RNA sequence: GUGGCAUGAUGAUGAUGAAUCGAAACUGUUCUGAGAUCUUUGCAUCUUUGAGCGAUUUAUAUCCUCCUACUCAUUCUGA
Numbered sequence: 001g002u003g004g005c006a007u008g009a010u011g012a013u014g015a016u017g018a019a020u021c022g023a024a025a026c027u028g029u030u031c032u033g034a035g036a037u038c039u040u041u042g043c044a045u046c047u048u049u050g051a052g053c054g055a056u057u058u059a060u061a062u063c064c065u066c067c068u069a070c071u072c073a074u075u076c077u078g079a
Stems, first nucleotide, its partner, number of pairs: 006074004029055002033049003

Rfam assigns this 79-nucleotide sequence from Dioscorea zingiberensis to the family "Small nucleolar RNA Z105". The family's RNA type in Rfam is C/D-box small nucleolar RNA. Rfam links the family to the GO terms nucleolus and RNA processing. Rfam 15.1 lists 621 matches to the family in 204 species. It scores 47 bits against the family's covariance model.